[Rfam]
RNA sequence: GAUGGAUUCAAAUCAAUCCAUUAACAAAUUUUUUGUUUGGUUGAUGGAUUAGAUGAAUUUUCUA
Numbered sequence: 001g002a003u004g005g006a007u008u009c010a011a012a013u014c015a016a017u018c019c020a021u022u023a024a025c026a027a028a029u030u031u032u033u034u035g036u037u038u039g040g041u042u043g044a045u046g047g048a049u050u051a052g053a054u055g056a057a058u059u060u061u062c063u064a
Stems, first nucleotide, its partner, number of pairs: 004060005012054003015050008025039005